RNA: Alphaproteobacteria transfer-messenger RNA
Organism: Henriciella mobilis
RNA sequence: CCCCUUUAUGAGGCGGACCAAAGCGCCUAUAUCCAACGUGUCCCCUCGGGGACUAUGGCGAUAAACGCGCGUGUAAUAAGCGGUUCGGACCCGGGGGCGGUACCCGGCGGCUCCACCAAUCAUCCUCCGGUCAUUGGGCGGACUGGUAUGGGGCCGAAACAGGAUCGACGGACGUGUAAAGACGAUGCUUUCGCCCGGCCGAGCUCCGUUAGAAGCUCAUCUCAACAUAGUUGCCAAUGACAACUUUGCUGAAGGUGAACUGAUGGCCGCGUAAGCGGUCGGUAAGUGAACCGAACUUAACUCCUGGGGCUUCAGCGCCUCAGGCGGGGCCCGGAGGCGCCUGGCAACAGAAGCCUCCACC
Number, nucleotide and partner (000 for none) at each position: 001c000002c000003c000004c000005u000006u000007u000008a000009u000010g000011a000012g000013g000014c000015g000016g000017a000018c000019c000020a000021a000022a000023g000024c000025g000026c000027c000028u000029a000030u000031a000032u000033c000034c000035a000036a000037c000038g000039u000040g053041u052042c051043c050044c049045c000046u000047c000048g000049g044050g043051g042052a041053c040054u000055a000056u000057g195058g194059c193060g192061a191062u000063a000064a000065a000066c000067g188068c187069g186070c184071g183072u182073g000074u000075a000076a000077u000078a000079a000080g000081c174082g173083g000084u000085u171086c170087g169088g000089a000090c000091c107092c106093g105094g104095g103096g000097g000098c000099g000100g000101u000102a000103c095104c094105c093106g092107g091108c156109g155110g154111c153112u152113c151114c150115a000116c000117c000118a000119a000120u000121c000122a000123u000124c000125c000126u000127c000128c000129g000130g000131u000132c000133a000134u000135u000136g000137g000138g000139c000140g000141g000142a000143c000144u000145g000146g000147u000148a000149u000150g114151g113152g112153g111154c110155c109156g108157a000158a000159a000160c000161a000162g000163g000164a000165u000166c000167g000168a000169c087170g086171g085172a000173c082174g081175u000176g000177u000178a000179a000180a000181g000182a072183c071184g070185a000186u069187g068188c067189u000190u000191u061192c060193g059194c058195c057196c208197g207198g206199c000200c000201g000202a000203g000204c000205u000206c198207c197208g196209u000210u000211a000212g000213a000214a000215g000216c000217u000218c000219a000220u000221c000222u000223c000224a000225a000226c000227a000228u000229a000230g000231u000232u000233g000234c000235c000236a000237a000238u000239g000240a000241c000242a000243a000244c000245u000246u000247u000248g000249c000250u000251g000252a000253a000254g000255g000256u000257g000258a000259a000260c000261u000262g000263a000264u000265g000266g000267c000268c000269g000270c000271g000272u000273a000274a000275g000276c000277g000278g000279u000280c000281g000282g000283u000284a000285a000286g000287u000288g000289a000290a000291c000292c000293g000294a000295a000296c000297u000298u000299a000300a000301c000302u000303c000304c000305u000306g000307g000308g000309g000310c000311u000312u000313c000314a000315g000316c000317g000318c000319c000320u000321c000322a000323g000324g000325c000326g000327g342328g341329g340330c339331c000332c000333g358334g357335a356336g355337g354338c353339g330340c329341c328342u327343g000344g000345c000346a000347a000348c000349a000350g000351a000352a000353g338354c337355c336356u335357c334358c333359a000360c000361c000